About this RNA: A member of the RNA family "Plastid-psbA-4 3UTR RNA" from Hippophae rhamnoides, 57 nucleotides long. A reference for the family is Richter et al. (2023), "Retrograde signaling in plants: A critical review focusing on the GUN pathway and beyond", Plant Commun. Its Rfam clan is "Plastid-psbA 3UTR RNA clan". By type it is a cis-regulatory element. Lineage of the source: Eukaryota > Streptophytina > Euphyllophyta > Pentapetalae > Hippophae.

RNA sequence: GAAAAUAAGGGAGCAAUAAUAAACUUCUUGAUAGAUCAAGAAGUUUGGUAUUGCUCC
Numbered sequence: 001g002a003a004a005a006u007a008a009g010g011g012a013g014c015a016a017u018a019a020u021a022a023a024c025u026u027c028u029u030g031a032u033a034g035a036u037c038a039a040g041a042a043g044u045u046u047g048g049u050a051u052u053g054c055u056c057c
Base pairs, nucleotide, nucleotide: 010057011056012055013054014053015052016051017050018049022045023044025042026041027040028039029038030037